[Rfam]
RNA sequence: AAAAAGGAGCAAUAGCCAAUUUCUUGUUCUAUCAAGAGGGUUGGUAUUGCUCCUUUUUUUAG
Numbered sequence: 001a002a003a004a005a006g007g008a009g010c011a012a013u014a015g016c017c018a019a020u021u022u023c024u025u026g027u028u029c030u031a032u033c034a035a036g037a038g039g040g041u042u043g044g045u046a047u048u049g050c051u052c053c054u055u056u057u058u059u060u061a062g
Base pairs, nucleotide, nucleotide: 001058002057003056004055005054006053007052008051009050010049011048012047013046014045016043017040022037023036024035025034026033
The family of this 62-nucleotide RNA sequence from Ricinus communis is "Plastid-psbA-2 3UTR RNA". It is annotated as a cis-regulatory element. The family's consensus secondary structure was predicted with LocARNA. For this family Rfam cites "Retrograde signaling in plants: A critical review focusing on the GUN pathway and beyond" (Richter et al., Plant Commun, 2023).